[Rfam]
The record is a 590-nucleotide part of an RNA from Trachelomonas sp. T201, which matches "Eukaryotic small subunit ribosomal RNA" in Rfam. The source organism's lineage runs through Eukaryota, Discoba, Spirocuta, Euglenales and Trachelomonas. It is one of the family's seed sequences. The literature on the family includes a 2001 paper in Science by Yusupov et al., "Crystal structure of the ribosome at 5.5 A resolution".

RNA sequence: UCGUUCAAGGAUUAAGCCAUGCAUGUCUCAGCGCAAAUGGAACAACAGUUGGUCUGUGAAUGGCUCCUUACAUCAGCAGUCAUCUAUGUGAUAGAGUGUGCUUGGCCAAGCUGCAUGGCCCAAUGGACAUCCACAAUAACCUUGUGGCUAAUACACGAAAGCAGAUGUCUGCCACAUCAUGUGGGUUCAGCAGUGCUGUUCCCACAGUGGUGGACUGCAAACAGCUCCUGAAAGACCAGCACCCUAACAGGGUAGCAUUGACUGGGUGAAUCAGGCUGUUCCAAAGGGACAUUGCACUGGCAGCUCACAAGCCUGGUUUACCAGGCAUGCUUGAUCACAUGAACUUCUGACCUAUCAGCUUUGACUGUGGUGCAGUGGACCACAGUGGCCUUGACGGGUAACGGAGAAUCAGGGUUCGAUUCCGGAGAGGGAGCCUGAGAAACGGCUACCACUACCAAGGUGGGCAGCAGGCGCGCAAAUUGCCCAAUACAAAGCCAAAUUGUGAGGCAGCAACGAACUGCAGCAAUCAUGCCCACUUAUGUGGGUUUGACUUGGAAUGGAUGCUAUCCAAACACAGCCAUGAGUAACAA
Dot-bracket structure: ..((((..((.....(((.(((..((...((.....((.........))....))))......(((......((((..((..((....((((...............................((.....((((((.....))))))......))...........((((..((.................................))..)))).....((((((........(((.....(((....)))............)))......))))))..........(((....((((....................))))..)))....))))...))))..))))(((....(((...((((((((.......)))))))))))......)))...((((((((....))))...))))))).((.(((..........))).)).((((....))))...)))))).).....(.(((...(((((.......))))).)))).)...)))).....((((((.((((((....)))))).))).)))......(((.(...........)).)).........